Rfam assigns this 110-nucleotide sequence from Nyssa sinensis to the family "MIR162_1 microRNA precursor family". The literature on the family includes a 2002 paper in Genes Dev by Reinhart et al., "MicroRNAs in plants".
RNA sequence: GUUGAGAUCACUGGACGCAGCGGUUCAUCGAUCUGUUCCCUGAACUGUUUGUGUAGUCAAAACACAGAACAGGAAUCGGUCGAUAAACCUCUGCAUCCAGCGCUCACCUC
Numbered sequence: 001g002u003u004g005a006g007a008u009c010a011c012u013g014g015a016c017g018c019a020g021c022g023g024u025u026c027a028u029c030g031a032u033c034u035g036u037u038c039c040c041u042g043a044a045c046u047g048u049u050u051g052u053g054u055a056g057u058c059a060a061a062a063c064a065c066a067g068a069a070c071a072g073g074a075a076u077c078g079g080u081c082g083a084u085a086a087a088c089c090u091c092u093g094c095a096u097c098c099a100g101c102g103c104u105c106a107c108c109u110c
Base pairs, nucleotide, nucleotide: 013098014097015096018093019092020091022089023088024087025086027084028083029082030081031080032079033078036075037074038073
Dot-bracket structure: ............(((..(((.((((.(((((((..(((..................................)))..))))))).)))).)))..)))............

Notes: The match comes from Rfam's covariance-model search (101 bits). The family has 36 seed sequences and 270 matches in Rfam 15.1.